The family of this 226-nucleotide RNA from Naumovozyma castellii is "Small nucleolar RNA snR80". The literature on the family includes a 2004 paper in Nucleic Acids Res by Schattner et al., "Genome-wide searching for pseudouridylation guide snoRNAs: analysis of the Saccharomyces cerevisiae genome". Its Rfam clan is "SNORA28 clan". Pairs were carried over by alignment from the consensus structure, which was predicted with WAR. A search with the family's covariance model found it, with a score of 74 bits.
[Rfam]
RNA sequence: UGACGUUUGAUUACACUUUUGAUCUUAAUUUAAGUUUUUCUAAGGAGAUUACGAUUACCUGAAUUUUAAUUCAUUAGAAUUCUAUUUACUUGAUUGUUUUCUCUUAAAACUUAAUUAUCAGUAUUAUGAUCAUGGUCCGUUUCAAACAAGAUUAAAUAGGCGACUUACUCACCAAGAUAUACCAUUUCCUCCAUGGUUAUAUUGGUCCAUUUUCAGUGCCAGACAU
Numbered sequence: 001u002g003a004c005g006u007u008u009g010a011u012u013a014c015a016c017u018u019u020u021g022a023u024c025u026u027a028a029u030u031u032a033a034g035u036u037u038u039u040c041u042a043a044g045g046a047g048a049u050u051a052c053g054a055u056u057a058c059c060u061g062a063a064u065u066u067u068a069a070u071u072c073a074u075u076a077g078a079a080u081u082c083u084a085u086u087u088a089c090u091u092g093a094u095u096g097u098u099u100u101c102u103c104u105u106a107a108a109a110c111u112u113a114a115u116u117a118u119c120a121g122u123a124u125u126a127u128g129a130u131c132a133u134g135g136u137c138c139g140u141u142u143c144a145a146a147c148a149a150g151a152u153u154a155a156a157u158a159g160g161c162g163a164c165u166u167a168c169u170c171a172c173c174a175a176g177a178u179a180u181a182c183c184a185u186u187u188c189c190u191c192c193a194u195g196g197u198u199a200u201a202u203u204g205g206u207c208c209a210u211u212u213u214c215a216g217u218g219c220c221a222g223a224c225a226u
Stems, first nucleotide, its partner, number of pairs: 007145003020132005026126004031113007159220003172205004177200003181197003